[Rfam]
RNA sequence: AUACAAUGAUGACACUCUUAGGACACCUUUGGAGGUUUUAACCAGUGAAAAUGCACAUCGCUUCUGAGUAUG
Numbered sequence: 001a002u003a004c005a006a007u008g009a010u011g012a013c014a015c016u017c018u019u020a021g022g023a024c025a026c027c028u029u030u031g032g033a034g035g036u037u038u039u040a041a042c043c044a045g046u047g048a049a050a051a052u053g054c055a056c057a058u059c060g061c062u063u064c065u066g067a068g069u070a071u072g
Stems, first nucleotide, its partner, number of pairs: 001071004
Overview: The family of this 72-nucleotide sequence from Danionella cerebrum is "Small nucleolar RNA SNORD58". snoRNA U58 is found in introns 1, 3 and 6 of the ribosomal protein RPL17 gene in humans. A search with the family's covariance model found it, with a score of 53 bits. The family has 33 seed sequences and 2,484 matches in Rfam 15.1.